[Rfam]
Record summary:
Shown here is a 44-nucleotide RNA sequence from Microlunatus parietis, a member of the family "L31-Actinobacteria ribosomal protein leader". The source organism's lineage runs through Bacteria, Bacillati, Actinomycetota, Propionibacteriaceae and Microlunatus. The family's consensus secondary structure is taken from published work. The match comes from Rfam's covariance-model search (38 bits).
RNA sequence: GUGGUGCCGGUUCACGUCCGCGAACUGCGAGGCGACCCGGUGCC
Number, nucleotide and partner (000 for none) at each position: 001g000002u000003g044004g043005u042006g000007c040008c039009g038010g037011u000012u000013c000014a000015c034016g033017u032018c031019c029020g028021c027022g000023a000024a000025c000026u000027g021028c020029g019030a000031g018032g017033c016034g015035a000036c000037c010038c009039g008040g007041u000042g005043c004044c003